RNA sequence: CCGUGCUAGAUGGGGAGGUAGCGGUGCCCUGUAACCCGCAAUCCGCUAUAGCGGGGUUGAAUUCCCACUGGCGGGCCUUGCCUGUGGGGCCUGCCCGGUGUUAGGGAUGAGGAGAGCCGGGUCCUGCGCGGCGAGAACUCAUGAACCCCGUCAGGUCCGGAAGGAAGCAGCGGUAAGUGAGCCAUCUCGGGUGCCGCAGGAGAGCCUGGCUGGAGUUACCGGCACCGGUAACGCCCGGAGGUCAGGUUCAACAGUGGGUGCACGG
Numbered sequence: 001c002c003g004u005g006c007u008a009g010a011u012g013g014g015g016a017g018g019u020a021g022c023g024g025u026g027c028c029c030u031g032u033a034a035c036c037c038g039c040a041a042u043c044c045g046c047u048a049u050a051g052c053g054g055g056g057u058u059g060a061a062u063u064c065c066c067a068c069u070g071g072c073g074g075g076c077c078u079u080g081c082c083u084g085u086g087g088g089g090c091c092u093g094c095c096c097g098g099u100g101u102u103a104g105g106g107a108u109g110a111g112g113a114g115a116g117c118c119g120g121g122u123c124c125u126g127c128g129c130g131g132c133g134a135g136a137a138c139u140c141a142u143g144a145a146c147c148c149c150g151u152c153a154g155g156u157c158c159g160g161a162a163g164g165a166a167g168c169a170g171c172g173g174u175a176a177g178u179g180a181g182c183c184a185u186c187u188c189g190g191g192u193g194c195c196g197c198a199g200g201a202g203a204g205c206c207u208g209g210c211u212g213g214a215g216u217u218a219c220c221g222g223c224a225c226c227g228g229u230a231a232c233g234c235c236c237g238g239a240g241g242u243c244a245g246g247u248u249c250a251a252c253a254g255u256g257g258g259u260g261c262a263c264g265g
Stems, first nucleotide, its partner, number of pairs: 001265006009058003012030004017025001019023001035055005064258007073249005080242004085237004092230002096227006104220002106217003115211008123200006129191001132189005138181005148173004156165003
Rfam assigns this 265-nucleotide RNA sequence from Thermanaeromonas toyohensis to the family "Bacterial large signal recognition particle RNA". The match comes from Rfam's covariance-model search (218 bits). The family's consensus secondary structure is taken from published work. Taxonomically the source falls in Thermanaeromonas toyohensis (Bacteria, Bacillati, Bacillota, Clostridia).